[Rfam]
RNA: Streptomyces sRNA 4677
Organism: Streptomyces sp. Ncost-T10-10d
Nucleotides: 233
Stems, first nucleotide, its partner, number of pairs: 007073003079094006109145001111143003168204005174198002179193004215231005
Number, partner (000 for none) and nucleotide at each position: 001000u002000u003000u004000u005000c006000c007073g008072c009071g010000a011000c012000g013000c014000a015000u016000a017000a018000a019000g020000c021000u022000u023000u024000a025000a026000a027000g028000g029000a030000c031000u032000u033000g034000g035000g036000g037000a038000a039000a040000u041000u042000a043000c044000u045000c046000u047000c048000c049000c050000c051000a052000c053000c054000c055000a056000a057000a058000c059000c060000c061000g062000a063000c064000c065000c066000c067000g068000c069000c070000c071009c072008g073007c074000u075000c076000u077000c078000g079094u080093c081092a082091c083090u084089c085000a086000c087000u088000c089084g090083g091082g092081u093080g094079a095000c096000a097000c098000a099000g100000g101000g102000c103000a104000a105000c106000u107000g108000g109145g110000c111143u112142g113141g114000a115000u116000u117000u118000c119000a120000c121000g122000c123000g124000g125000g126000u127000u128000g129000g130000c131000u132000g133000g134000c135000a136000u137000a138000u139000g140000c141113u142112c143111g144000c145109c146000g147000c148000g149000a150000c151000a152000a153000c154000u155000c156000c157000a158000g159000a160000c161000a162000u163000g164000c165000g166000a167000c168204g169203g170202c171201c172200c173000c174198c175197g176000a177000c178000c179193g180192a181191g182190a183000u184000u185000c186000a187000c188000a189000g190182u191181c192180u193179c194000a195000a196000c197175c198174g199000g200172g201171g202170g203169c204168c205000u206000g207000a208000c209000c210000a211000c212000c213000g214000a215231g216230g217229a218228a219227g220000a221000a222000g223000a224000g225000a226000c227219c228218u229217u230216c231215c232000c233000g